[Rfam]
RNA sequence: CCUGGACCCGGCAGCGAUCCCGGAUGGCGCUUCCGGCCCCCGAUCCGCCGGACAACG
Numbered sequence: 001c002c003u004g005g006a007c008c009c010g011g012c013a014g015c016g017a018u019c020c021c022g023g024a025u026g027g028c029g030c031u032u033c034c035g036g037c038c039c040c041c042g043a044u045c046c047g048c049c050g051g052a053c054a055a056c057g
Base pairs, nucleotide, nucleotide: 006025008023009022010021011020013018032052033051034050035049036048037047